[Rfam]
Ribosomal protein L10 leader: a 128-nucleotide sequence from Clostridium sp. CAG:510.
RNA sequence: AGAGGUUGUGAAACCGUGCCGAAGACAGUAGGUGCCGCAAGGCGUAAAGAAUUAUCACCUACCGAGGAAAGAGUUGACGUUAAGACUUUUUGCCUUCCUGUCUUCAGGGAGGCUUUUCUUAUAUAACU
Number, nucleotide and partner (000 for none) at each position: 001a000002g000003a000004g000005g000006u000007u000008g000009u000010g000011a000012a000013a000014c000015c000016g000017u000018g000019c000020c000021g000022a000023a000024g000025a000026c000027a000028g062029u061030a060031g059032g058033u057034g043035c042036c041037g000038c000039a000040a000041g036042g035043c034044g000045u000046a000047a000048a000049g000050a000051a000052u000053u000054a000055u000056c000057a033058c032059c031060u030061a029062c028063c000064g000065a000066g000067g000068a000069a000070a000071g000072a000073g000074u000075u000076g000077a000078c000079g000080u000081u000082a000083a000084g000085a000086c000087u000088u000089u000090u000091u000092g113093c112094c111095u110096u109097c108098c107099u106100g105101u000102c000103u000104u000105c100106a099107g098108g097109g096110a095111g094112g093113c092114u000115u000116u000117u000118c000119u000120u000121a000122u000123a000124u000125a000126a000127c000128u000

The family's consensus secondary structure was predicted with CMfinder. Rfam describes the family as follows. This family is a putative r-protein leader autoregulatory structure found in B. subtilis and other low-GC Gram-positive bacteria. It is located in the 5' untranslated regions of mRNAs encoding ribosomal proteins L10 and L12 (rplJ-rplL). A Rho-independent transcription terminator structure that is probably involved in regulation is included at the 3' end. A reference for the family is Zengel and Lindahl (1994), "Diverse mechanisms for regulating ribosomal protein synthesis in Escherichia coli", Prog Nucleic Acid Res Mol Biol. It scores 76 bits against the family's covariance model.